The record is a 93-nucleotide RNA from Colwellia sp. C1TZA3, which matches "c-di-GMP-I riboswitch aptamer" in Rfam. A search with the family's covariance model found it, with a score of 66 bits. The source organism's lineage runs through Bacteria, Pseudomonadati, Gammaproteobacteria, Colwelliaceae and Colwellia. Rfam links the family to the GO term cyclic-di-GMP binding.
[Rfam]
RNA sequence: ACGAAGAAAAGGCAAAACACGCGAAAACGUGUUACGCAAAACCACCGGUCUAAGGAUAAUACUCUAUUUAUCUACGACAGCGGAGUCACCGUG
Numbered sequence: 001a002c003g004a005a006g007a008a009a010a011g012g013c014a015a016a017a018c019a020c021g022c023g024a025a026a027a028c029g030u031g032u033u034a035c036g037c038a039a040a041a042c043c044a045c046c047g048g049u050c051u052a053a054g055g056a057u058a059a060u061a062c063u064c065u066a067u068u069u070a071u072c073u074a075c076g077a078c079a080g081c082g083g084a085g086u087c088a089c090c091g092u093g
Base pairs, nucleotide, nucleotide: 012037013036017032018031019030020029021028041086042085045083046082047081048078049077050076055072056071057070058069